[Rfam]
A member of the RNA family "mir-318 microRNA precursor family" from Musca domestica, 104 nucleotides long. Its family is annotated with RISC complex and miRNA-mediated post-transcriptional gene silencing in the Gene Ontology. The literature on the family includes a 2007 paper in Nature by Clark et al., "Evolution of genes and genomes on the Drosophila phylogeny". The family is grouped with related families in Rfam's "mir-3 clan". NCBI's taxonomy places the organism under Eukaryota, Protostomia, Allotriocarida, Eremoneura, Musca.
RNA sequence: UUUAUGGGAUACACCAAGUUCAGUUUUGUGGAUUUCUAAAAUAAGAAAUAUUUAAGAGCUUCAAAUCAAAUGAUUGCAUCACUGGGCUUUGUUUAUCUCAUAAU
Numbered sequence: 001u002u003u004a005u006g007g008g009a010u011a012c013a014c015c016a017a018g019u020u021c022a023g024u025u026u027u028g029u030g031g032a033u034u035u036c037u038a039a040a041a042u043a044a045g046a047a048a049u050a051u052u053u054a055a056g057a058g059c060u061u062c063a064a065a066u067c068a069a070a071u072g073a074u075u076g077c078a079u080c081a082c083u084g085g086g087c088u089u090u091g092u093u094u095a096u097c098u099c100a101u102a103a104u
Stems, first nucleotide, its partner, number of pairs: 002103010013092002017088008027078005